[Rfam]
RNA: DUF3577 RNA
RNA sequence: CGUAUCGGAAAAGCGCAGGAAACUGCGUGAAACUCGCCUGCAACCCGGCAUCACCGCAUUGCGGUGUGGCGACUGAAACCUCCGCCCAUGAGGCGCGACCGU
Numbered sequence: 001c002g003u004a005u006c007g008g009a010a011a012a013g014c015g016c017a018g019g020a021a022a023c024u025g026c027g028u029g030a031a032a033c034u035c036g037c038c039u040g041c042a043a044c045c046c047g048g049c050a051u052c053a054c055c056g057c058a059u060u061g062c063g064g065u066g067u068g069g070c071g072a073c074u075g076a077a078a079c080c081u082c083c084g085c086c087c088a089u090g091a092g093g094c095g096c097g098a099c100c101g102u
Base pairs, nucleotide, nucleotide: 013028014027015026016025017024018023034072035071036070037069038068052066053065054064055063056062057061083097084096085095086093087092